[Rfam]
RNA sequence: UUUUAAACCGUUUUAAACCGUUUUAACCGUUUAACCGGUUUAACCGGUUUAAACCGGUUUAAACCGUUUAAACCGUUUAAACCGUUUAAACCGUUUAAACCGUUUAACGUUUAACGU
Numbered sequence: 001u002u003u004u005a006a007a008c009c010g011u012u013u014u015a016a017a018c019c020g021u022u023u024u025a026a027c028c029g030u031u032u033a034a035c036c037g038g039u040u041u042a043a044c045c046g047g048u049u050u051a052a053a054c055c056g057g058u059u060u061a062a063a064c065c066g067u068u069u070a071a072a073c074c075g076u077u078u079a080a081a082c083c084g085u086u087u088a089a090a091c092c093g094u095u096u097a098a099a100c101c102g103u104u105u106a107a108c109g110u111u112u113a114a115c116g117u
Base pairs, nucleotide, nucleotide: 007077009075010074016048018046020044025040026039027038028037029036055066056065057064089104090103091102

Description: A member of the RNA family "aspC ncRNA motif" from Neisseria flavescens, 117 nucleotides long. On this family, see Narunsky et al., Nucleic Acids Res 2024: "The discovery of novel noncoding RNAs in 50 bacterial genomes". The organism belongs to Neisseria, within Bacteria. The family's consensus secondary structure is taken from published work. Gene Ontology term of the family: regulation of gene expression.